[Rfam]
RNA sequence: AACCUUUUUAAAAGCAGUCCAGCGAGACUGACAAGAGGAUGUAAGGCGGCAUGGAAACUGCAUGCUUGCUUUCAACACAACCUCUUUGUCAUUUUAGGCAAAGAGGUUUUUAAAA
Numbered sequence: 001a002a003c004c005u006u007u008u009u010a011a012a013a014g015c016a017g018u019c020c021a022g023c024g025a026g027a028c029u030g031a032c033a034a035g036a037g038g039a040u041g042u043a044a045g046g047c048g049g050c051a052u053g054g055a056a057a058c059u060g061c062a063u064g065c066u067u068g069c070u071u072u073c074a075a076c077a078c079a080a081c082c083u084c085u086u087u088g089u090c091a092u093u094u095u096a097g098g099c100a101a102a103g104a105g106g107u108u109u110u111u112a113a114a115a
Stems, first nucleotide, its partner, number of pairs: 003038006015030005040074002043071003048066006077110001079108012